[Rfam]
RNA sequence: CGCGAAAAGGCAAAUCCGGCGAAAGCCGGGGGCGCAAAGCUGCGGGUCUAAAGUUUAACUCACGUUUAAACCAAGACAGCCGGGCUGCCGAAG
Numbered sequence: 001c002g003c004g005a006a007a008a009g010g011c012a013a014a015u016c017c018g019g020c021g022a023a024a025g026c027c028g029g030g031g032g033c034g035c036a037a038a039g040c041u042g043c044g045g046g047u048c049u050a051a052a053g054u055u056u057a058a059c060u061c062a063c064g065u066u067u068a069a070a071c072c073a074a075g076a077c078a079g080c081c082g083g084g085c086u087g088c089c090g091a092a093g
Stems, first nucleotide, its partner, number of pairs: 001093001003090002010035002015030006033079001038086004043082003046077003